RNA sequence: AGAAUGCACAUUAAUUAUCCAUGGGGUCAUGGGAUAAACAAAAACUCUACAAAACCAAGUUAGCAUACCCUAGAAUGGUUCUAGCAUGAUUACUAACCUAUGACUCUAAUACCAGUUGUUGGGAAAAACUC
Numbered sequence: 001a002g003a004a005u006g007c008a009c010a011u012u013a014a015u016u017a018u019c020c021a022u023g024g025g026g027u028c029a030u031g032g033g034a035u036a037a038a039c040a041a042a043a044a045c046u047c048u049a050c051a052a053a054a055c056c057a058a059g060u061u062a063g064c065a066u067a068c069c070c071u072a073g074a075a076u077g078g079u080u081c082u083a084g085c086a087u088g089a090u091u092a093c094u095a096a097c098c099u100a101u102g103a104c105u106c107u108a109a110u111a112c113c114a115g116u117u118g119u120u121g122g123g124a125a126a127a128a129c130u131c
Stems, first nucleotide, its partner, number of pairs: 009121002012118005022108012048086001053080002056077002060073004
This 131-nucleotide RNA from Vitis rotundifolia belongs to the Rfam family "MIR845_2 microRNA precursor family". The family has 2 seed sequences and 180 matches in Rfam 15.1. The family's consensus secondary structure was predicted with WAR. A reference for the family is Jaillon et al. (2007), "The grapevine genome sequence suggests ancestral hexaploidization in major angiosperm phyla", Nature.